Annotation:
The record is an 89-nucleotide RNA sequence from Calothrix sp. NIES-4101, which matches "Cyano-1 RNA" in Rfam. The family's consensus secondary structure is taken from published work. Taxonomically the source falls in Calothrix (Bacteria, Bacillati, Cyanobacteriota, Calotrichaceae). The match comes from Rfam's covariance-model search (45 bits). By type it is a small RNA.

RNA sequence: AUUCGUGUGAGGAGUAAGCUAAGAAGACUAAUUGAGAACAAAAAACACCUGGAGUGGAAACACGGUCACACGUCCAGGUGUUUUUUGCU
Numbered sequence: 001a002u003u004c005g006u007g008u009g010a011g012g013a014g015u016a017a018g019c020u021a022a023g024a025a026g027a028c029u030a031a032u033u034g035a036g037a038a039c040a041a042a043a044a045a046c047a048c049c050u051g052g053a054g055u056g057g058a059a060a061c062a063c064g065g066u067c068a069c070a071c072g073u074c075c076a077g078g079u080g081u082u083u084u085u086u087g088c089u
Stems, first nucleotide, its partner, number of pairs: 042084005049077005054071003